[Rfam]
RNA sequence: GGUGGAGUGCCCACUGAAUUCGCCAUACAGGAGGUGAAUUCAAACUACCCUAAGUUGCUGUAGCCAAAAGCUAUGGUACUAGCGUUAGGGAAAAGUUAGUAUAAAAACUGGCAAGU
Numbered sequence: 001g002g003u004g005g006a007g008u009g010c011c012c013a014c015u016g017a018a019u020u021c022g023c024c025a026u027a028c029a030g031g032a033g034g035u036g037a038a039u040u041c042a043a044a045c046u047a048c049c050c051u052a053a054g055u056u057g058c059u060g061u062a063g064c065c066a067a068a069a070g071c072u073a074u075g076g077u078a079c080u081a082g083c084g085u086u087a088g089g090g091a092a093a094a095g096u097u098a099g100u101a102u103a104a105a106a107a108c109u110g111g112c113a114a115g116u
Base pairs, nucleotide, nucleotide: 001015002014003013004012005011016041017040018039019038020037021036023034024033026031046115048090049089050088051087052086053085054079055078057077058076059075061073062072063071064070095112096111097110098109099108100107